Rfam assigns this 87-nucleotide sequence from Manihot esculenta to the family "Small nucleolar RNA snoR27". The literature on the family includes a 2001 paper in RNA by Brown et al., "Multiple snoRNA gene clusters from Arabidopsis". Its Rfam clan is "snR68 clan". The match comes from Rfam's covariance-model search (66 bits). The family's consensus secondary structure was predicted with WAR.
RNA sequence: UCUGGAUCAAUGAUGUUUCUGAUAUUCUGCGUUAUCUAUCUGCAAAUUAUUCAAAUUGAAGAUAACUAUAACAUGCUGAGAUCCUUG
Numbered sequence: 001u002c003u004g005g006a007u008c009a010a011u012g013a014u015g016u017u018u019c020u021g022a023u024a025u026u027c028u029g030c031g032u033u034a035u036c037u038a039u040c041u042g043c044a045a046a047u048u049a050u051u052c053a054a055a056u057u058g059a060a061g062a063u064a065a066c067u068a069u070a071a072c073a074u075g076c077u078g079a080g081a082u083c084c085u086u087g
Stems, first nucleotide, its partner, number of pairs: 001087001004084004